Alphaproteobacterial ar14: a 123-nucleotide RNA from Kaistia sp. 32K. The family's RNA type in Rfam is small RNA. Rfam's curators write: Smr14C2 was renamed NfeR1 (Nodule Formation Efficiency RNA) highly expressed in salt stress and during the symbiotic interaction on legume roots. The organism belongs to Kaistia, within Bacteria. A reference for the family is del Val et al. (2012), "A survey of sRNA families in alpha-proteobacteria", RNA Biol. A search with the family's covariance model found it, with a score of 71 bits.
RNA sequence: GGAAUUCGCAGAGGACAUCCCCUCCUCCCUCCGUUCUCUGCGAUUGGCGCCGCGUCGACCUCCUCCCCGACAACGCGCCACCCUCUAAACGCCCGUCGACCUCCUCCCCGACGGGCGUUUUUC
Numbered sequence: 001g002g003a004a005u006u007c008g009c010a011g012a013g014g015a016c017a018u019c020c021c022c023u024c025c026u027c028c029c030u031c032c033g034u035u036c037u038c039u040g041c042g043a044u045u046g047g048c049g050c051c052g053c054g055u056c057g058a059c060c061u062c063c064u065c066c067c068c069g070a071c072a073a074c075g076c077g078c079c080a081c082c083c084u085c086u087a088a089a090c091g092c093c094c095g096u097c098g099a100c101c102u103c104c105u106c107c108c109c110g111a112c113g114g115g116c117g118u119u120u121u122u123c
Base pairs, nucleotide, nucleotide: 007042008041009040011038012037013036014035015034016033047078048077049076050075054071055070056069089118090117091116092115093114094113095112096111097110098109